[Rfam]
RNA sequence: GGCGUAAAGGGCGCGUAGGCGGCCUUUCAAGUCAGGCGUGAAAGCCCCGGGCUCAACCUGGGAACUGCGCUUGAGACUGUGAGGCUUGAGGUCCGGAGAGGUGGGUGGAAUUCCCAGUGUAGAGGUGAAAUUCGUAGAUAUUGGGAAGAACACCGGUGGCGAAGGCGGCCCACUGGACGGAUACUGACGCUGAGGCGCGAAAGCGUGGGGAGCAAACAGGAUUAGAUACCCUGGUAGUCCACGCCGUAAACGAUGUCGGCUAGACGUUGGGGCUCUUAGAGCUUCGGUGUCGCAGCUAACGCAUUAAGCCGACCGCCUGGGGAGUACGGCCGCAAGGUUGAAACUCAAAGGAAU
Numbered sequence: 001g002g003c004g005u006a007a008a009g010g011g012c013g014c015g016u017a018g019g020c021g022g023c024c025u026u027u028c029a030a031g032u033c034a035g036g037c038g039u040g041a042a043a044g045c046c047c048c049g050g051g052c053u054c055a056a057c058c059u060g061g062g063a064a065c066u067g068c069g070c071u072u073g074a075g076a077c078u079g080u081g082a083g084g085c086u087u088g089a090g091g092u093c094c095g096g097a098g099a100g101g102u103g104g105g106u107g108g109a110a111u112u113c114c115c116a117g118u119g120u121a122g123a124g125g126u127g128a129a130a131u132u133c134g135u136a137g138a139u140a141u142u143g144g145g146a147a148g149a150a151c152a153c154c155g156g157u158g159g160c161g162a163a164g165g166c167g168g169c170c171c172a173c174u175g176g177a178c179g180g181a182u183a184c185u186g187a188c189g190c191u192g193a194g195g196c197g198c199g200a201a202a203g204c205g206u207g208g209g210g211a212g213c214a215a216a217c218a219g220g221a222u223u224a225g226a227u228a229c230c231c232u233g234g235u236a237g238u239c240c241a242c243g244c245c246g247u248a249a250a251c252g253a254u255g256u257c258g259g260c261u262a263g264a265c266g267u268u269g270g271g272g273c274u275c276u277u278a279g280a281g282c283u284u285c286g287g288u289g290u291c292g293c294a295g296c297u298a299a300c301g302c303a304u305u306a307a308g309c310c311g312a313c314c315g316c317c318u319g320g321g322g323a324g325u326a327c328g329g330c331c332g333c334a335a336g337g338u339u340g341a342a343a344c345u346c347a348a349a350g351g352a353a354u
Base pairs, nucleotide, nucleotide: 001317002316003315009314011198012197013196014195016192018191019190020189022085023084024083025082026081028079030078031077032074033073034072035071036070037069038068039067040066046062047061048060049059050058051057089185090184092181093180094179095178100174101173102172103171104170105169106168107151111147112146113145114144115143116142117141118140122133123132124131159166160165203244204243205242206241207240208239212238213237217233218232219231220230255313256312257311258310259309260308263291264290265289266288267287268286269285270284271283272282273281274280295302296301319346320345321344328339329338330337331336